[Rfam]
Nucleotides: 082
Base pairs, nucleotide, nucleotide: 004052005051006050007049008048009047010046011045012044015041016040017070018069019068020067026037027036028035029034059077061075062074063073
Number, partner (000 for none) and nucleotide at each position: 001000a002000a003000g004052g005051c006050u007049g008048u009047g010046u011045g012044u013000g014000a015041c016040u017070g018069g019068c020067g021000u022000a023000g024000a025000c026037a027036c028035g029034g030000a031000u032000g033000a034029c035028c036027g037026u038000g039000a040016g041015g042000g043000a044012g045011c046010a047009c048008a049007u050006a051005g052004u053000a054000u055000c056000g057000a058000a059077u060000c061075g062074c063073c064000g065000u066000u067020c068019g069018c070017c071000u072000g073063g074062g075061c076000a077059g078000a079000g080000g081000u082000a

Shown here is an 82-nucleotide sequence from Evansella caseinilytica, a member of the family "ZMP/ZTP riboswitch aptamer (pfl RNA motif)".